permuted transfer-messenger RNA: a 218-nucleotide RNA from Lichenicola cladoniae.
The base pairs follow the family's consensus structure, which is taken from published work.
On this family, see Zwieb et al., Nucleic Acids Res 2003: "tmRDB (tmRNA database)".
The family's RNA type in Rfam is non-coding RNA gene.

RNA sequence: GGCGAUAAACGGUGUGUGGAAUAAUCGUUGUGGACCCGGGGGCAGUGCCCGGCGUCUCCACCAAACGCCGGAGGCCGCGAGGCCGAGGGCCUCAUGGGGACGAAACAGGCUCGACACGCGUGGUAAAGACUAACUUUUUGCUCGGCAUGAUACCGCCGUCAUCGGGUCAUAUUACAAGUGCCAACGAUAACAAUCAGGCGCUCGCUGUCGCUGCAUAA
Numbered sequence: 001g002g003c004g005a006u007a008a009a010c011g012g013u014g015u016g017u018g019g020a021a022u023a024a025u026c027g028u029u030g031u032g033g034a035c036c037c038g039g040g041g042g043c044a045g046u047g048c049c050c051g052g053c054g055u056c057u058c059c060a061c062c063a064a065a066c067g068c069c070g071g072a073g074g075c076c077g078c079g080a081g082g083c084c085g086a087g088g089g090c091c092u093c094a095u096g097g098g099g100a101c102g103a104a105a106c107a108g109g110c111u112c113g114a115c116a117c118g119c120g121u122g123g124u125a126a127a128g129a130c131u132a133a134c135u136u137u138u139u140g141c142u143c144g145g146c147a148u149g150a151u152a153c154c155g156c157c158g159u160c161a162u163c164g165g166g167u168c169a170u171a172u173u174a175c176a177a178g179u180g181c182c183a184a185c186g187a188u189a190a191c192a193a194u195c196a197g198g199c200g201c202u203c204g205c206u207g208u209c210g211c212u213g214c215a216u217a218a
Stems, first nucleotide, its partner, number of pairs: 001142005016130002026120003030117003036052005053102007143158004